[Rfam]
RNA sequence: AUUUCUUUUAACAUAUUAGGAAGUUGAAUUGGCAGUGAAGAAAUAAGUAGGAAGUUGAAAGCCAACAUUGCCUAUAACCAAAACUCAAAAAACCCAUAUCAUGCUUCUUUCUUCAUUGCCAAAUUGACUUCCUGAUAUGUUAAAGGAAAU
Dot-bracket structure: ...(((((((((((((((.((((((((.(((.(((((((((((.((.((.(....((.....................................))...).)).)).))))))))))).))).)))))))).)))))))))))))))...
RNA: MIR8643 microRNA precursor family